[Rfam]
RNA sequence: CUACAAUGAUGUCAGUAUUUUUUGUCAACAGCAGUUCACCUAGUGAGUAUUAAUACCUUGGGUCUGAGUAG
Numbered sequence: 001c002u003a004c005a006a007u008g009a010u011g012u013c014a015g016u017a018u019u020u021u022u023u024g025u026c027a028a029c030a031g032c033a034g035u036u037c038a039c040c041u042a043g044u045g046a047g048u049a050u051u052a053a054u055a056c057c058u059u060g061g062g063u064c065u066g067a068g069u070a071g
Base pairs, nucleotide, nucleotide: 002070003069004068008026009025010024011023
RNA: Small nucleolar RNA SNORD56